[Rfam]
This 36-nucleotide RNA sequence from Clostridioides difficile belongs to the Rfam family "abiF RNA".
The base pairs follow the family's consensus structure, which is taken from published work.
About the family: Actinobacteria, Bacteroidetes, Clostridia, Proteobacteria, one Clostridia phage.
The family has 126 seed sequences and 282 matches in Rfam 15.1.
The sequence is in the family's curated seed alignment.

RNA sequence: CCCGCCAAGCUUCUUUUAUAGCUCAAAUAGGCGGGA
Number, nucleotide and partner (000 for none) at each position: 001c035002c034003c033004g032005c031006c030007a000008a023009g022010c021011u000012u000013c000014u000015u000016u000017u000018a000019u000020a000021g010022c009023u008024c000025a000026a000027a000028u000029a000030g006031g005032c004033g003034g002035g001036a000